[Rfam]
RNA sequence: CUUCAGUCCAGGGCUGAGUCAGCGGAGCCCCGAGUGGCUUCCCUGGCUGGCACCUGGACGUAGGC
Numbered sequence: 001c002u003u004c005a006g007u008c009c010a011g012g013g014c015u016g017a018g019u020c021a022g023c024g025g026a027g028c029c030c031c032g033a034g035u036g037g038c039u040u041c042c043c044u045g046g047c048u049g050g051c052a053c054c055u056g057g058a059c060g061u062a063g064g065c
Base pairs, nucleotide, nucleotide: 001064002063003062006059007058008057009056010055011054012053013051014050015049017048018047019046020045021044022043024041025040026039027038028037029036
The record is a 65-nucleotide RNA from Mus musculus, which matches "mir-1956 microRNA precursor family" in Rfam. Its family is annotated with RISC complex and miRNA-mediated post-transcriptional gene silencing in the Gene Ontology. The source organism's lineage runs through Eukaryota, Theria, Boreoeutheria, Mus and Mus. The family has 2 seed sequences and 8 matches in Rfam 15.1. It is one of the family's seed sequences.